[Rfam]
This 100-nucleotide RNA sequence from Corythaixoides concolor belongs to the Rfam family "Small nucleolar RNA SNORD16". The source organism's lineage runs through Eukaryota, Bilateria, Gnathostomata, Archelosauria and Corythaixoides. A search with the family's covariance model found it, with a score of 104 bits. Rfam 15.1 lists 1,321 matches to the family in 655 species. The literature on the family includes a 2001 paper in EMBO J by Huttenhofer et al., "RNomics: an experimental approach that identifies 201 candidates for novel, small, non-messenger RNAs in mouse". Gene Ontology terms of the family: RNA processing and nucleolus.
RNA sequence: UGCCAUGAUGUCGUAAUUUGCGUCUUACUCUGCGCUCAGUGGCAGUUGCCUGCUGUCAGCGUACUGGUGCAGAUGGUUGACGAACAAUUAACACUGAGCA
Number, nucleotide and partner (000 for none) at each position: 001u100002g099003c098004c000005a000006u000007g000008a000009u000010g000011u000012c000013g000014u000015a000016a000017u000018u000019u000020g000021c082022g081023u080024c079025u000026u000027a000028c000029u000030c072031u071032g070033c069034g068035c000036u000037c000038a000039g064040u063041g057042g056043c055044a054045g053046u000047u000048g000049c000050c000051u000052g000053c045054u044055g043056u042057c041058a000059g000060c000061g000062u000063a040064c039065u000066g000067g000068u034069g033070c032071a031072g030073a000074u000075g000076g000077u000078u000079g024080a023081c022082g021083a000084a000085c000086a000087a000088u000089u000090a000091a000092c000093a000094c000095u000096g000097a000098g003099c002100a001